[Rfam]
RNA sequence: GGCGGUCCGCACGGGAGCCCGGAGGGACCGGGCUGAGAGGGGGGCUGGACGCCCCCGACCGUCGAACCUGAUCCGGGUCAUGCCGGCGCAGGGAGCGUGAUGGGGUGUCUU
Numbered sequence: 001g002g003c004g005g006u007c008c009g010c011a012c013g014g015g016a017g018c019c020c021g022g023a024g025g026g027a028c029c030g031g032g033c034u035g036a037g038a039g040g041g042g043g044g045c046u047g048g049a050c051g052c053c054c055c056c057g058a059c060c061g062u063c064g065a066a067c068c069u070g071a072u073c074c075g076g077g078u079c080a081u082g083c084c085g086g087c088g089c090a091g092g093g094a095g096c097g098u099g100a101u102g103g104g105g106u107g108u109c110u111u
Stems, first nucleotide, its partner, number of pairs: 006099001008097003011062004017033005040056005067092004073086004
Record summary: TPP riboswitch aptamer (THI element): a 111-nucleotide RNA from Streptoalloteichus hindustanus. It scores 61 bits against the family's covariance model. The source organism's lineage runs through Bacteria, Bacillati, Actinomycetota, Actinomycetes and Streptoalloteichus. The family's consensus secondary structure is taken from published work. Vitamin B(1) in its active form thiamin pyrophosphate (TPP) is an essential coenzyme that is synthesised by coupling of pyrimidine and thiazole moieties in bacteria. Its family is annotated with thiamine pyrophosphate binding in the Gene Ontology.